[Rfam]
RNA: Xanthine riboswitch aptamer (NMT1 RNA)
Nucleotides: 060
Base pairs, nucleotide, nucleotide: 005056006055007054008053009052010051015045018047019046021043022042023041025039026038027037028036029035
Number, partner (000 for none) and nucleotide at each position: 001000c002000c003000a004000u005056u006055g007054g008053g009052u010051a011000g012000a013000a014000g015045c016000g017000u018047u019046c020000a021043a022042u023041c024000a025039g026038c027037a028036c029035c030000g031000u032000g033000a034000c035029g036028g037027u038026g039025c040000a041023g042022a043021u044000g045015g046019g047018a048000a049000a050000u051010u052009g053008c054007c055006c056005a057000u058000g059000a060000u